[Rfam]
RNA sequence: UUUACUCUUCAGGGCAGGGUGAAAUUCCCGACCGGCGGUUAAAGUCCGCGACUCGGCUCCGCAGCCGAUUGAUCUGGUGUAAUUCCAGUACCGACAGUAAAGUCUGGAUGGGAGAAGAUGUGA
Numbered sequence: 001u002u003u004a005c006u007c008u009u010c011a012g013g014g015c016a017g018g019g020u021g022a023a024a025u026u027c028c029c030g031a032c033c034g035g036c037g038g039u040u041a042a043a044g045u046c047c048g049c050g051a052c053u054c055g056g057c058u059c060c061g062c063a064g065c066c067g068a069u070u071g072a073u074c075u076g077g078u079g080u081a082a083u084u085c086c087a088g089u090a091c092c093g094a095c096a097g098u099a100a101a102g103u104c105u106g107g108a109u110g111g112g113a114g115a116a117g118a119u120g121u122g123a
Stems, first nucleotide, its partner, number of pairs: 006118005017029003031103002033093002035049004044091002053068002074088004095106003

This 123-nucleotide RNA sequence from Natronincola ferrireducens belongs to the Rfam family "FMN riboswitch aptamer (RFN element)". Taxonomically the source falls in Natronincola (Bacteria, Bacillati, Clostridia, Natronincolaceae). Rfam's curators write: The RFN element is a highly conserved domain that is found frequently in the 5'-untranslated regions of prokaryotic mRNAs that encode for flavin mononucleotide (FMN) biosynthesis and transport proteins. This element is a metabolite-dependent riboswitch that directly binds FMN in the absence of proteins. In Bacillus subtilis, the riboswitch most likely controls gene expression by causing premature transcription termination within the 5' untranslated region of the ribDEAHT operon and precluding access to the ribosome-binding site of ypaA mRNA.The FMN riboswitch structure, reported in present an FMN-bound six-stem junction, adopts a butterfly-like scaffold, stapled together by opposingly directed but nearly identically folded peripheral domains. The family's consensus secondary structure is taken from published work. The match comes from Rfam's covariance-model search (111 bits).